[Rfam]
RNA sequence: GGUUGGUCUGAGUGUAGUUGGUGUUUACAAUUACUUAAUCACGGCCAGUUAGGGGUUUCUUUGUUCCAUCACCAUUCCACUGUUCCACUUGACUAGUCUUGA
Numbered sequence: 001g002g003u004u005g006g007u008c009u010g011a012g013u014g015u016a017g018u019u020g021g022u023g024u025u026u027a028c029a030a031u032u033a034c035u036u037a038a039u040c041a042c043g044g045c046c047a048g049u050u051a052g053g054g055g056u057u058u059c060u061u062u063g064u065u066c067c068a069u070c071a072c073c074a075u076u077c078c079a080c081u082g083u084u085c086c087a088c089u090u091g092a093c094u095a096g097u098c099u100u101g102a
Stems, first nucleotide, its partner, number of pairs: 001098008010090002014086001016081003020077001029065003033061001
This 102-nucleotide RNA sequence from Callithrix jacchus belongs to the Rfam family "Y RNA".
Rfam classes the family as a non-coding RNA gene.
Rfam's curators write: Y RNAs are components of the Ro ribonucleoprotein particle (Ro RNP), in association with Ro60 and La proteins. The Y RNAs and Ro60 and La proteins are well conserved, but the function of the Ro RNP is not known. In humans the RNA component can be one of four small RNAs -- hY1, hY3, hY4 and hY5.
A search with the family's covariance model found it, with a score of 50 bits.